The family of this 338-nucleotide sequence from Erwinia billingiae is "RNase E 5' UTR element". The source organism's lineage runs through Bacteria, Pseudomonadati, Gammaproteobacteria, Enterobacterales and Erwinia. From the family's description: This family represents a conserved element found in the 5' UTR of RNase E mRNA. RNase E is a key regulatory enzyme in the pathway of mRNA degradation in E. coli that is able to auto-regulate the degradation of its own mRNA in response to changes in RNase E activity. This rne 5' UTR element acts as a sensor of cellular RNase E concentration enabling tight regulation of RNase E concentration and synthesis. Rfam links the family to the GO term regulation of gene expression. Rfam classes the family as a cis-regulatory element.
[Rfam]
RNA sequence: UUUUCCUCGCUAAACCUUGUGAAACAAGAAAAAAGCGUAAUAAGAAAGUUUGCCGGAUAGCCCAUACACGCAGCAAUGGCGUAAGACGUAUUGUGCAAUCAGGCAUUUAGCGGGCUGCGGGUUGCAGCCUGGACGACAAGACGGGAUUGGUUCACUCUGGUUACUCACUGGCGGUUCCCCCCUUUUUAAAAGCGCUGUUUUUCCAUAUGAAAAACAGGCUGCCGAGAUUUUGCGCCCCUUAGCAGACCACAACCGUGAGGUUGACGUUUUUGCGAUGAGACUCGGGGCCAUCGGUUACUCGCGUCCAGCGUUACUAUUGCCCGUAGCUUUGUCACUAA
Numbered sequence: 001u002u003u004u005c006c007u008c009g010c011u012a013a014a015c016c017u018u019g020u021g022a023a024a025c026a027a028g029a030a031a032a033a034a035g036c037g038u039a040a041u042a043a044g045a046a047a048g049u050u051u052g053c054c055g056g057a058u059a060g061c062c063c064a065u066a067c068a069c070g071c072a073g074c075a076a077u078g079g080c081g082u083a084a085g086a087c088g089u090a091u092u093g094u095g096c097a098a099u100c101a102g103g104c105a106u107u108u109a110g111c112g113g114g115c116u117g118c119g120g121g122u123u124g125c126a127g128c129c130u131g132g133a134c135g136a137c138a139a140g141a142c143g144g145g146a147u148u149g150g151u152u153c154a155c156u157c158u159g160g161u162u163a164c165u166c167a168c169u170g171g172c173g174g175u176u177c178c179c180c181c182c183u184u185u186u187u188a189a190a191a192g193c194g195c196u197g198u199u200u201u202u203c204c205a206u207a208u209g210a211a212a213a214a215c216a217g218g219c220u221g222c223c224g225a226g227a228u229u230u231u232g233c234g235c236c237c238c239u240u241a242g243c244a245g246a247c248c249a250c251a252a253c254c255g256u257g258a259g260g261u262u263g264a265c266g267u268u269u270u271u272g273c274g275a276u277g278a279g280a281c282u283c284g285g286g287g288c289c290a291u292c293g294g295u296u297a298c299u300c301g302c303g304u305c306c307a308g309c310g311u312u313a314c315u316a317u318u319g320c321c322c323g324u325a326g327c328u329u330u331g332u333c334a335c336u337a338a
Stems, first nucleotide, its partner, number of pairs: 003040002006037001008035001016028003051105004056100002061095001063093002068089003073080002112329011130307006143181003146176001152171003156167001191220003195217004200212004221295005234288005247266001250263005